[Rfam]
RNA sequence: AGAGUACCGAGUCAAUAAAGACUGAGUAGAUUGAUUCAGGAACAA
Numbered sequence: 001a002g003a004g005u006a007c008c009g010a011g012u013c014a015a016u017a018a019a020g021a022c023u024g025a026g027u028a029g030a031u032u033g034a035u036u037c038a039g040g041a042a043c044a045a
Stems, first nucleotide, its partner, number of pairs: 007039001009037008
A member of the RNA family "Plastid-rpl16 group II-D1 intron", 45 nucleotides long. For this family Rfam cites "Retrograde signaling in plants: A critical review focusing on the GUN pathway and beyond" (Richter et al., Plant Commun, 2023). Gene Ontology term of the family: Group II intron splicing. Rfam's curators put it in the seed alignment. Rfam describes the family as follows. Plastid-rpl16 is a non-coding RNA (ncRNA) recognised in plastids. It was recognised in and intronic region of a ribosome rpl16 gene.